[Rfam]
The family of this 79-nucleotide RNA from Onchocerca volvulus is "mir-9/mir-79 microRNA precursor family". Rfam 15.1 lists 5,647 matches to the family in 934 species. Gene Ontology terms of the family: miRNA-mediated post-transcriptional gene silencing and RISC complex. Taxonomically the source falls in Onchocerca (Eukaryota, Bilateria, Ecdysozoa, Filarioidea). On this family, see Lagos-Quintana et al., Science 2001: "Identification of novel genes coding for small expressed RNAs".
RNA sequence: UUAGCGAUUUCUUUGGUUAUCUAGCUGUAUGAGUAUUGCAUAAUUUGUCAUAAAGCUAGACGACCGGAGUAAUAGCUUC
Number, nucleotide and partner (000 for none) at each position: 001u000002u000003a077004g076005c075006g000007a073008u072009u071010u000011c069012u068013u067014u066015g065016g064017u063018u062019a000020u060021c059022u058023a057024g056025c055026u054027g000028u052029a051030u050031g049032a048033g000034u000035a000036u000037u000038g000039c000040a000041u000042a000043a000044u000045u000046u000047g000048u032049c031050a030051u029052a028053a000054a026055g025056c024057u023058a022059g021060a020061c000062g018063a017064c016065c015066g014067g013068a012069g011070u000071a009072a008073u007074a000075g005076c004077u003078u000079c000